[Rfam]
RNA sequence: CGCACUCGAGCGGGAGAGUCCCGUGGCCACCAGCUACGGGCGCCGAAGGAGCAACACCUCUCCGUCAACCUCUCAGGCACCCGGACCGCACGAGUUAA
Numbered sequence: 001c002g003c004a005c006u007c008g009a010g011c012g013g014g015a016g017a018g019u020c021c022c023g024u025g026g027c028c029a030c031c032a033g034c035u036a037c038g039g040g041c042g043c044c045g046a047a048g049g050a051g052c053a054a055c056a057c058c059u060c061u062c063c064g065u066c067a068a069c070c071u072c073u074c075a076g077g078c079a080c081c082c083g084g085a086c087c088g089c090a091c092g093a094g095u096u097a098a
Stems, first nucleotide, its partner, number of pairs: 006093003010089004020040006042078003045074002049072003056065002
Notes
The family of this 98-nucleotide sequence from Mycobacterium bohemicum is "Glycine riboswitch aptamer". The match comes from Rfam's covariance-model search (66 bits).